Small nucleolar RNA SNORA32: a 120-nucleotide RNA from Carlito syrichta. Rfam classes the family as an H/ACA-box small nucleolar RNA. Pairs were carried over by alignment from the consensus structure, which was predicted with RNAfold. Rfam describes the family as follows. ACA32 is a member of the H/ACA class of snoRNA that guide the sites of modification of uridines to pseudouridines. The family has 9 seed sequences and 615 matches in Rfam 15.1. The match comes from Rfam's covariance-model search (108 bits).
Nucleotides: 120
Stems, first nucleotide, its partner, number of pairs: 003053003007049001010046002026041004066113004073106004084099003
Number, partner (000 for none) and nucleotide at each position: 001000u002000g003053g004052u005051c006000c007049u008000u009000a010046c011045u012000a013000a014000g015000g016000c017000a018000a019000u020000u021000a022000g023000a024000a025000u026041g027040c028039a029038g030000u031000g032000u033000g034000u035000c036000a037000u038029u039028u040027g041026c042000u043000g044000g045011g046010g047000a048000c049007a050000u051005g052004a053003c054000c055000a056000u057000a058000a059000a060000u061000c062000a063000a064000u065000g066113u067112u068111c069110a070000c071000u072000c073106g074105g075104u076103u077000u078000u079000c080000u081000g082000u083000c084099u085098g086097c087000u088000a089000c090000c091000u092000u093000g094000c095000c096000a097086g098085c099084a100000g101000u102000c103076a104075a105074c106073c107000u108000g109000u110069u111068g112067g113066a114000a115000a116000c117000a118000u119000u120000u